MIR5387 microRNA precursor family: a 96-nucleotide RNA sequence from Triticum turgidum. Its family is annotated with RISC complex and miRNA-mediated post-transcriptional gene silencing in the Gene Ontology. The family has 2 seed sequences and 1,029 matches in Rfam 15.1. The family's consensus secondary structure was predicted with RNAalifold.
RNA sequence: UGGUGGCACCAACCGGUACUAAAGGUUACCUUUAGUACCGGUUGGUGCCACCAACCGGGACUAAAGGUUACCUUUAGUACCGGUUGGUGCCACCAA
Numbered sequence: 001u002g003g004u005g006g007c008a009c010c011a012a013c014c015g016g017u018a019c020u021a022a023a024g025g026u027u028a029c030c031u032u033u034a035g036u037a038c039c040g041g042u043u044g045g046u047g048c049c050a051c052c053a054a055c056c057g058g059g060a061c062u063a064a065a066g067g068u069u070a071c072c073u074u075u076a077g078u079a080c081c082g083g084u085u086g087g088u089g090c091c092a093c094c095a096a
Stems, first nucleotide, its partner, number of pairs: 003093024029067002034062003038058002045051002